[Rfam]
A member of the RNA family "Mammalian CPEB3 ribozyme" from Crocodylus porosus, 79 nucleotides long. On this family, see Salehi-Ashtiani et al., Science 2006: "A genomewide search for ribozymes reveals an HDV-like sequence in the human CPEB3 gene". NCBI's taxonomy places the organism under Eukaryota, Gnathostomata, Tetrapoda, Amniota, Crocodylus. A search with the family's covariance model found it, with a score of 41 bits. Pairs were carried over by alignment from the consensus structure, which is taken from published work.

RNA sequence: AGAGGUUAAAUAUUCAAGGUCACAGCAGAAGCACUUACGGUGCGGCCUAUAGGGUUCCACUGAAUCUCUGAAUUCUGCU
Numbered sequence: 001a002g003a004g005g006u007u008a009a010a011u012a013u014u015c016a017a018g019g020u021c022a023c024a025g026c027a028g029a030a031g032c033a034c035u036u037a038c039g040g041u042g043c044g045g046c047c048u049a050u051a052g053g054g055u056u057c058c059a060c061u062g063a064a065u066c067u068c069u070g071a072a073u074u075c076u077g078c079u
Stems, first nucleotide, its partner, number of pairs: 018047004024079007031043003052067006
Dot-bracket structure: .................[[[[..((((((((((.......)))]]]]....((((((....)))))).....)))))))